[Rfam]
A member of the RNA family "SAM riboswitch aptamer (S box leader)" from Domibacillus mangrovi, 115 nucleotides long. Its family is annotated with regulation of gene expression in the Gene Ontology. The family's consensus secondary structure is taken from published work.

RNA sequence: UUCUUAUCAAGAGAAGCUGAGGGUACUGGCCCGCAGACGCUUCAGCAACCAGCCGGGACAGGUCAGGUGCUAAAUCCAGCAGACUACUUACUGAUAUAAGUCUGGAAGAUGAGAA
Number, nucleotide and partner (000 for none) at each position: 001u115002u114003c113004u112005u111006a110007u109008c108009a000010a000011g000012a000013g043014a042015a041016g040017c039018u000019g000020a000021g032022g031023g030024u000025a000026c079027u078028g077029g076030c023031c022032c021033g000034c000035a000036g000037a000038c000039g017040c016041u015042u014043c013044a071045g070046c069047a068048a000049c067050c066051a000052g063053c062054c061055g000056g000057g000058a000059c000060a000061g054062g053063u052064c000065a000066g050067g049068u047069g046070c045071u044072a000073a000074a000075u107076c029077c028078a027079g026080c104081a103082g102083a101084c100085u099086a000087c000088u000089u000090a000091c000092u000093g000094a000095u000096a000097u000098a000099a085100g084101u083102c082103u081104g080105g000106a000107a075108g008109a007110u006111g005112a004113g003114a002115a001